[Rfam]
RNA sequence: UAUUGCAAAGGAAAUGGUGUCUUCCUUCUCCAACCGCUGCACCCGUAGCUAAUGGCGCCUACAAAUAA
Numbered sequence: 001u002a003u004u005g006c007a008a009a010g011g012a013a014a015u016g017g018u019g020u021c022u023u024c025c026u027u028c029u030c031c032a033a034c035c036g037c038u039g040c041a042c043c044c045g046u047a048g049c050u051a052a053u054g055g056c057g058c059c060u061a062c063a064a065a066u067a068a
Stems, first nucleotide, its partner, number of pairs: 010025004016059006036049004

A member of the RNA family "Fluoride riboswitch aptamer (crcB RNA motif)" from Chitinophaga caeni, 68 nucleotides long.
The match comes from Rfam's covariance-model search (48 bits).
The organism belongs to Chitinophaga, within Bacteria.
Pairs were carried over by alignment from the consensus structure, which is taken from published work.